[Rfam]
RNA sequence: AUACAUUUCUCGCCCUUUUGACUAAGAUCAAGUGUAGUGUAUCUAUUUUAUCAGUUUAUUAUUUGAUACGUGGAUUAUUGAUCCACAUGAUAUUAAAUUAAUUUUUUUAAGGGAGAGUCCAUCAUAGUAGCUUGCUAUUGGCAUUCUCGAGUGUCACUCUUUGUUGCACUACAGCAAGGGCCGGGUGCAUCCCAC
Number, nucleotide and partner (000 for none) at each position: 001a000002u000003a000004c000005a000006u000007u000008u027009c026010u025011c000012g023013c000014c000015c020016u000017u000018u000019u000020g015021a000022c000023u012024a000025a010026g009027a008028u000029c000030a000031a000032g000033u000034g000035u000036a000037g000038u000039g000040u000041a000042u000043c000044u000045a000046u000047u000048u000049u068050a067051u066052c065053a064054g063055u000056u000057u000058a000059u000060u000061a000062u000063u054064u053065g052066a051067u050068a049069c000070g086071u085072g084073g083074a082075u081076u080077a000078u000079u000080g076081a075082u074083c073084c072085a071086c070087a000088u000089g000090a000091u000092a000093u000094u000095a000096a000097a000098u000099u000100a000101a000102u000103u000104u000105u000106u000107u000108u000109a000110a000111g000112g000113g148114a147115g146116a145117g144118u143119c000120c141121a000122u000123c000124a000125u000126a000127g138128u137129a136130g135131c000132u000133u000134g000135c130136u129137a128138u127139u000140g000141g120142c000143a118144u117145u116146c115147u114148c113149g000150a000151g188152u187153g186154u185155c184156a000157c000158u180159c179160u178161u177162u176163g000164u000165u000166g000167c000168a000169c000170u000171a000172c000173a000174g000175c000176a162177a161178g160179g159180g158181c000182c000183g000184g155185g154186u153187g152188c151189a000190u000191c000192c000193c000194a000195c000

This 195-nucleotide RNA sequence from Durio zibethinus belongs to the Rfam family "U2 spliceosomal RNA". U2 is a small nuclear RNA (snRNA) component of the spliceosome (involved in pre-mRNA splicing). Complementary binding between U2 snRNA (in an area lying towards the 5' end but 3' to hairpin I) and the branchpoint sequence (BPS) of the intron results the bulging out of an unpaired adenosine, on the BPS, which initiates a nucleophilic attack at the intronic 5' splice site, thus starting the first of two transesterification reactions that mediate splicing. For this family Rfam cites "The spliceosomal snRNAs of Caenorhabditis elegans" (Thomas et al., Nucleic Acids Res, 1990). The family's RNA type in Rfam is spliceosomal small nuclear RNA.